[Rfam]
RNA sequence: UGACUGCGAUGAUGCAGGAGGUUGCUGACACACCCGGCCGCUUUGCCAUGGCGAGUGUGUUGGGGAAAUUUCUGCGGAGAAUGUCUAUAAUAAUGUAGGCGA
Numbered sequence: 001u002g003a004c005u006g007c008g009a010u011g012a013u014g015c016a017g018g019a020g021g022u023u024g025c026u027g028a029c030a031c032a033c034c035c036g037g038c039c040g041c042u043u044u045g046c047c048a049u050g051g052c053g054a055g056u057g058u059g060u061u062g063g064g065g066a067a068a069u070u071u072c073u074g075c076g077g078a079g080a081a082u083g084u085c086u087a088u089a090a091u092a093a094u095g096u097a098g099g100c101g102a
Stems, first nucleotide, its partner, number of pairs: 014075003018072004025063009082101008